[Rfam]
RNA: glmS glucosamine-6-phosphate activated ribozyme aptamer
RNA sequence: ACCAACAGGGCAGCGCAAGGCCCACCCGCAACGUCUGGGUGGGAAACGAGGUGGAGGUCAGCGAUUUUUCUGCGGAUGCCUCCAGGUGUGGGCGACACCUACCCGCCGGGUCUGCACAGCAGAUGCGGGAAGUCGCGGCGAUAAACCCAG
Number, nucleotide and partner (000 for none) at each position: 001a000002c000003c000004a000005a000006c000007a000008g000009g000010g000011c000012a000013g000014c000015g000016c000017a000018a000019g000020g000021c043022c042023c041024a040025c039026c038027c037028g000029c000030a000031a000032c000033g000034u000035c000036u000037g027038g026039g025040u024041g023042g022043g021044a000045a000046a000047c000048g000049a000050g000051g000052u000053g083054g082055a081056g080057g079058u000059c000060a000061g000062c000063g070064a069065u000066u000067u000068u000069u064070c063071u000072g000073c000074g000075g000076a000077u000078g000079c057080c056081u055082c054083c053084a100085g099086g098087u097088g096089u095090g000091g000092g000093c000094g000095a089096c088097a087098c086099c085100u084101a000102c000103c000104c000105g000106c000107c000108g000109g000110g000111u000112c150113u149114g148115c000116a000117c000118a000119g000120c000121a000122g139123a000124u137125g136126c135127g134128g133129g000130a000131a000132g000133u128134c127135g126136c125137g124138g000139c122140g000141a000142u000143a000144a000145a000146c000147c000148c114149a113150g112